[Rfam]
RNA sequence: GCCUCUGAGGAUGAUAAGUAGAAUACUUUCGUUCUUCUGAGAUUUUCCAUGCGGAACCUUUUGGAGACCUGAACUGAAGAGGC
Numbered sequence: 001g002c003c004u005c006u007g008a009g010g011a012u013g014a015u016a017a018g019u020a021g022a023a024u025a026c027u028u029u030c031g032u033u034c035u036u037c038u039g040a041g042a043u044u045u046u047c048c049a050u051g052c053g054g055a056a057c058c059u060u061u062u063g064g065a066g067a068c069c070u071g072a073a074c075u076g077a078a079g080a081g082g083c
Stems, first nucleotide, its partner, number of pairs: 003081004
Shown here is an 83-nucleotide sequence from Manihot esculenta, a member of the family "Small nucleolar RNA Z159/U59". The match comes from Rfam's covariance-model search (69 bits). The family's consensus secondary structure was predicted with PFOLD. Clan: SNORD59 clan.